[Rfam]
RNA: Small nucleolar RNA Z118/Z121/Z120
Organism: Eragrostis curvula
RNA sequence: GGAUUGCUGUGAUGACUUUUACAAGGACGGUAUCUGAGCGAGGAGCCUAUCCUUGCCUGAUUAUACCUAAACUGAGACAAAUGUCUGAGCAUUUU
Dot-bracket structure: (((.(((..............................((((((.......))))))................................))).)))